[Rfam]
RNA: Small nucleolar RNA SNORA77
RNA sequence: GCAGACUCACUCUGUGCCUGACUGCAGUCUUCAGUCCAGGGGCUUUUUCAGUCUGCUAGAGUAAUGGUCCAAGAUGUUGAGAACACUUUUCUUUGUAGAAGACUGUUGCAAUUGCUGCUUGGACAUAAUUUU
Numbered sequence: 001g002c003a004g005a006c007u008c009a010c011u012c013u014g015u016g017c018c019u020g021a022c023u024g025c026a027g028u029c030u031u032c033a034g035u036c037c038a039g040g041g042g043c044u045u046u047u048u049c050a051g052u053c054u055g056c057u058a059g060a061g062u063a064a065u066g067g068u069c070c071a072a073g074a075u076g077u078u079g080a081g082a083a084c085a086c087u088u089u090u091c092u093u094u095g096u097a098g099a100a101g102a103c104u105g106u107u108g109c110a111a112u113u114g115c116u117g118c119u120u121g122g123a124c125a126u127a128a129u130u131u132u
Base pairs, nucleotide, nucleotide: 001056002055003054004053005052006051014043015042017040018039019038020037022034023033024032068123069122070121071120072119073118076112077111078110079109081107084105085104087102088101